The record is a 73-nucleotide RNA sequence from Hibiscus syriacus, which matches "Small nucleolar RNA snoR60" in Rfam. Its Rfam clan is "SNORD101 clan". The organism belongs to Hibiscus, within Eukaryota. It is annotated as a C/D-box small nucleolar RNA. For this family Rfam cites "Fibrillarin genes encode both a conserved nucleolar protein and a novel small nucleolar RNA involved in ribosomal RNA methylation in Arabidopsis thaliana" (Barneche et al., J Biol Chem, 2000). The base pairs follow the family's consensus structure, which was predicted with PFOLD.
RNA sequence: CUGCAUAUGAUGAACUCUACUCGGAUUCCCCUUCAAGACUGCUUGAGUGAUGCAAACUCGAGUUUCUGAUGCA
Numbered sequence: 001c002u003g004c005a006u007a008u009g010a011u012g013a014a015c016u017c018u019a020c021u022c023g024g025a026u027u028c029c030c031c032u033u034c035a036a037g038a039c040u041g042c043u044u045g046a047g048u049g050a051u052g053c054a055a056a057c058u059c060g061a062g063u064u065u066c067u068g069a070u071g072c073a
Base pairs, nucleotide, nucleotide: 002073003072004071005070